[Rfam]
RNA: Small nucleolar RNA ACA64
RNA sequence: ACAGACUGAAAAUGACCCCAGGUGUUUCAGUGAUCUGGGGUCAGAUAACUGUGCCGACAUUACCGUGGUGCGUAUGCUUAUUGCGUGUCAUUUAGUGGCUGCGUGAUAAAACCCAUGCACCAACAUCC
Numbered sequence: 001a002c003a004g005a006c007u008g009a010a011a012a013u014g015a016c017c018c019c020a021g022g023u024g025u026u027u028c029a030g031u032g033a034u035c036u037g038g039g040g041u042c043a044g045a046u047a048a049c050u051g052u053g054c055c056g057a058c059a060u061u062a063c064c065g066u067g068g069u070g071c072g073u074a075u076g077c078u079u080a081u082u083g084c085g086u087g088u089c090a091u092u093u094a095g096u097g098g099c100u101g102c103g104u105g106a107u108a109a110a111a112c113c114c115a116u117g118c119a120c121c122a123a124c125a126u127c128c
Stems, first nucleotide, its partner, number of pairs: 005052002008049001010046001013043004021035003067121001069119005078109005087099002